Rfam assigns this 74-nucleotide RNA sequence from Xiphorhynchus elegans to the family "Small nucleolar RNA SNORD19". Rfam 15.1 lists 1,431 matches to the family in 609 species. The family's RNA type in Rfam is C/D-box small nucleolar RNA. Rfam links the family to the GO terms RNA processing and nucleolus. A search with the family's covariance model found it, with a score of 43 bits. On this family, see Huttenhofer et al., EMBO J 2001: "RNomics: an experimental approach that identifies 201 candidates for novel, small, non-messenger RNAs in mouse".
RNA sequence: GAGAAAUGAGGAUACACACUUUGUCUUACUGCUGUAGUGAAGACUUCAGAUCCAACUCUGAUCUCACAUUUAGC
Dot-bracket structure: ((((.........................................................)))).........